[Rfam]
Rfam assigns this 102-nucleotide RNA from Caldovatus sediminis to the family "Glycine riboswitch aptamer". Lineage of the source: Bacteria > Pseudomonadota > Alphaproteobacteria > Roseomonadaceae > Caldovatus.
RNA sequence: CCUCUGGAAAGCCCGGCUCCGCGCGGCGGCGCCGGCACCGACGGAGUAAGGCCGGGCCGAGGCGAAUCGGCCGGCCGAAUCUCUCAGGUCUUCGGACAGAGG
Numbered sequence: 001c002c003u004c005u006g007g008a009a010a011g012c013c014c015g016g017c018u019c020c021g022c023g024c025g026g027c028g029g030c031g032c033c034g035g036c037a038c039c040g041a042c043g044g045a046g047u048a049a050g051g052c053c054g055g056g057c058c059g060a061g062g063c064g065a066a067u068c069g070g071c072c073g074g075c076c077g078a079a080u081c082u083c084u085c086a087g088g089u090c091u092u093c094g095g096a097c098a099g100a101g102g
Stems, first nucleotide, its partner, number of pairs: 001102006013035004037089003040085002044083003050076006